[Rfam]
RNA: mir-9242 microRNA precursor family
RNA sequence: GGCCUCCCUCUGUGGGGCGAUUGAUCGCGGAGCCCUCUCCCAUUGAUCACCCCACAGAAGGUGGCC
Numbered sequence: 001g002g003c004c005u006c007c008c009u010c011u012g013u014g015g016g017g018c019g020a021u022u023g024a025u026c027g028c029g030g031a032g033c034c035c036u037c038u039c040c041c042a043u044u045g046a047u048c049a050c051c052c053c054a055c056a057g058a059a060g061g062u063g064g065c066c
Base pairs, nucleotide, nucleotide: 001066002065003064004063006061007060009058010057011056012055013054014053015052016051017050019048020047021046022045023044024043025042027040029038030037031036